[Rfam]
Shown here is an 89-nucleotide RNA sequence from Melissococcus plutonius, a member of the family "Enterococcus sRNA 84". By type it is an antisense RNA. The family's consensus secondary structure was predicted with RNAfold. Taxonomically the source falls in Melissococcus plutonius (Bacteria, Bacillota, Bacilli, Melissococcus).
RNA sequence: UACCAACAACAACCUUUUUAUUUUUCAAUUUACUCUGAAUAGGGUAAAUACUCCUUUUCCACCGGUAAUUGAUACCGGUGGUUUUUUUG
Numbered sequence: 001u002a003c004c005a006a007c008a009a010c011a012a013c014c015u016u017u018u019u020a021u022u023u024u025u026c027a028a029u030u031u032a033c034u035c036u037g038a039a040u041a042g043g044g045u046a047a048a049u050a051c052u053c054c055u056u057u058u059c060c061a062c063c064g065g066u067a068a069u070u071g072a073u074a075c076c077g078g079u080g081g082u083u084u085u086u087u088u089g
Stems, first nucleotide, its partner, number of pairs: 029048007059081009